[Rfam]
RNA: Lysine riboswitch aptamer
Organism: Haloplasma contractile
RNA sequence: AUGUGCAAAAGAGGCCGCGGUUCGUCAAGAGUACUACUUAGUAGGAAAGGGGCAAUCGCCGAAAUAUACGAUUUGUGUAUAUUGGGGUCAUGCUGAAUAAGUAUGGCACUGCUAUUAACGUGUUACCCAACCUUUAAUAGAGCACUUUACACAUU
Numbered sequence: 001a002u003g004u005g006c007a008a009a010a011g012a013g014g015c016c017g018c019g020g021u022u023c024g025u026c027a028a029g030a031g032u033a034c035u036a037c038u039u040a041g042u043a044g045g046a047a048a049g050g051g052g053c054a055a056u057c058g059c060c061g062a063a064a065u066a067u068a069c070g071a072u073u074u075g076u077g078u079a080u081a082u083u084g085g086g087g088u089c090a091u092g093c094u095g096a097a098u099a100a101g102u103a104u105g106g107c108a109c110u111g112c113u114a115u116u117a118a119c120g121u122g123u124u125a126c127c128c129a130a131c132c133u134u135u136a137a138u139a140g141a142g143c144a145c146u147u148u149a150c151a152c153a154u155u
Base pairs, nucleotide, nucleotide: 008148009147010146011145017059018058019057020056021055022054024053025052026051034044035043036042037041063083064082065081066080067079068078069077070076084110085109087107088106089105090104091103092102093101094100112140113139114138115137116136117135118134